[Rfam]
RNA sequence: UAAAGUAAAACUGCGGUUAUAGUUGCUAUUUUUUUUCAGACGAACAAUAAUAGAGCCCGAAAAAAGAUGAGUAAAUAACUUUUUC
Numbered sequence: 001u002a003a004a005g006u007a008a009a010a011c012u013g014c015g016g017u018u019a020u021a022g023u024u025g026c027u028a029u030u031u032u033u034u035u036u037c038a039g040a041c042g043a044a045c046a047a048u049a050a051u052a053g054a055g056c057c058c059g060a061a062a063a064a065a066g067a068u069g070a071g072u073a074a075a076u077a078a079c080u081u082u083u084u085c
Stems, first nucleotide, its partner, number of pairs: 009068001011066002018061001024055001026053005033047002069081004